Source information:
The record is a 146-nucleotide RNA from Populus trichocarpa, which matches "MIR480 microRNA precursor family" in Rfam. The literature on the family includes a 2005 paper in Plant Cell by Lu et al., "Novel and mechanical stress-responsive MicroRNAs in Populus trichocarpa that are absent from Arabidopsis". The sequence is in the family's curated seed alignment.
[Rfam]
RNA sequence: UAAUUUGUUUGAGGCAGAUCCUCAUUUAAUUAUAGCAGACCCACACUUGACUGCUCAGAAUCAUUUAUUAUCGCAAGUCCGACUAUUUCUCUAGCAUUGAAAAACAAAGGACAAUUACUAUGUGGACAAUAACUCGAGAUCAUAAA
Number, nucleotide and partner (000 for none) at each position: 001u000002a000003a000004u144005u000006u142007g141008u139009u138010u000011g000012a000013g000014g133015c000016a000017g000018a000019u128020c000021c000022u000023c122024a121025u120026u000027u117028a116029a115030u114031u113032a000033u000034a000035g000036c000037a000038g000039a000040c000041c000042c000043a000044c000045a000046c000047u000048u000049g000050a000051c000052u000053g000054c000055u000056c000057a000058g000059a000060a000061u000062c000063a000064u000065u000066u000067a000068u000069u000070a000071u000072c000073g000074c000075a000076a000077g000078u000079c000080c000081g000082a000083c000084u000085a000086u000087u000088u000089c000090u000091c000092u000093a000094g000095c000096a000097u000098u000099g000100a000101a000102a000103a000104a000105c000106a000107a000108a000109g000110g000111a000112c000113a031114a030115u029116u028117a027118c000119u000120a025121u024122g023123u000124g000125g000126a000127c000128a019129a000130u000131a000132a000133c014134u000135c000136g000137a000138g009139a008140u000141c007142a006143u000144a004145a000146a000